[Rfam]
RNA sequence: GAGUGUUACAGCUCUUUUAGAAUUUGUCUAGCAGGUUUUCUGGUUUUUGCCGAAAAGUCCUU
Numbered sequence: 001g002a003g004u005g006u007u008a009c010a011g012c013u014c015u016u017u018u019a020g021a022a023u024u025u026g027u028c029u030a031g032c033a034g035g036u037u038u039u040c041u042g043g044u045u046u047u048u049g050c051c052g053a054a055a056a057g058u059c060c061u062u
Stems, first nucleotide, its partner, number of pairs: 034059006041052004